[Rfam]
Nucleotides: 086
Stems, first nucleotide, its partner, number of pairs: 012037002017032006040080004045076003048071003055065004
Number, partner (000 for none) and nucleotide at each position: 001000a002000a003000a004000a005000a006000u007000a008000u009000u010000u011000g012037g013036c014000a015000a016000a017032c018031u019030u020029a021028c022027u023000g024000a025000a026000a027022a028021g029020u030019a031018a032017g033000g034000a035000c036013g037012c038000a039000a040080a041079g042078c043077u044000a045076u046075g047074g048071g049070u050069c051000u052000a053000a054000a055065g056064a057063c058062u059000a060000a061000c062058a063057g064056u065055c066000u067000a068000u069050g070049a071048u072000u073000g074047c075046c076045a077043g078042g079041u080040u081000g082000c083000c084000c085000u086000u